[Rfam]
A member of the RNA family "STAXI RNA" from Xenorhabdus szentirmaii, 157 nucleotides long.
RNA sequence: UAGCGUAGUCAAACUUAUCGAUGAUCCGGUCGCUUGUGAGGAUCACCUUCGGGCAGCGACAGCAACACUCCUGUAGCCUGCAAGGGAGUACACUACGGUGUGGUACAUCUGCGCACCUUUGGAAGCAGAUAUCGUUAGUCUGAUGACGAUGAAGGUU
Numbered sequence: 001u002a003g004c005g006u007a008g009u010c011a012a013a014c015u016u017a018u019c020g021a022u023g024a025u026c027c028g029g030u031c032g033c034u035u036g037u038g039a040g041g042a043u044c045a046c047c048u049u050c051g052g053g054c055a056g057c058g059a060c061a062g063c064a065a066c067a068c069u070c071c072u073g074u075a076g077c078c079u080g081c082a083a084g085g086g087a088g089u090a091c092a093c094u095a096c097g098g099u100g101u102g103g104u105a106c107a108u109c110u111g112c113g114c115a116c117c118u119u120u121g122g123a124a125g126c127a128g129a130u131a132u133c134g135u136u137a138g139u140c141u142g143a144u145g146a147c148g149a150u151g152a153a154g155g156u157u
Stems, first nucleotide, its partner, number of pairs: 002015001005014002023044005029060006046053002067089005073106003077103002090101003108129005115156005131150007
Annotation
The family has 43 seed sequences and 130 matches in Rfam 15.1. The family's RNA type in Rfam is small RNA.